Source information:
The record is an 87-nucleotide RNA from Otolemur garnettii, which matches "Small nucleolar RNA SNORD11B" in Rfam. Rfam classes the family as a C/D-box small nucleolar RNA. NCBI's taxonomy places the organism under Eukaryota, Deuterostomia, Teleostomi, Euteleostomi, Otolemur. Clan: SNORD11 clan. Gene Ontology terms of the family: nucleolus and RNA processing. Pairs were carried over by alignment from the consensus structure, which was predicted with WAR.
RNA sequence: UGAUGGCAGUGAUGAUUUUUAUACUUACCAUUCACCUGAUAAGACAAAUAUGAGGGUGUUCAGUCACUACCUCAUCUGAUGCCAUCA
Numbered sequence: 001u002g003a004u005g006g007c008a009g010u011g012a013u014g015a016u017u018u019u020u021a022u023a024c025u026u027a028c029c030a031u032u033c034a035c036c037u038g039a040u041a042a043g044a045c046a047a048a049u050a051u052g053a054g055g056g057u058g059u060u061c062a063g064u065c066a067c068u069a070c071c072u073c074a075u076c077u078g079a080u081g082c083c084a085u086c087a
Base pairs, nucleotide, nucleotide: 002086003085004084005083006082007081